Peptidase-S11 RNA: a 90-nucleotide RNA sequence from Erwinia sp. Leaf53.
RNA sequence: CGUAUUAUUCCUGCGCCAGCCCCAUCAAACCCGGUUUUUAUGAUGCGUGGCGGCGUGUGUACCCCACACCUGAACAACCAGCCGUUAAGU
Numbered sequence: 001c002g003u004a005u006u007a008u009u010c011c012u013g014c015g016c017c018a019g020c021c022c023c024a025u026c027a028a029a030c031c032c033g034g035u036u037u038u039u040a041u042g043a044u045g046c047g048u049g050g051c052g053g054c055g056u057g058u059g060u061a062c063c064c065c066a067c068a069c070c071u072g073a074a075c076a077a078c079c080a081g082c083c084g085u086u087a088a089g090u
Stems, first nucleotide, its partner, number of pairs: 015054003019051003023045005055069005
Rfam classes the family as a cis-regulatory element. It scores 41 bits against the family's covariance model.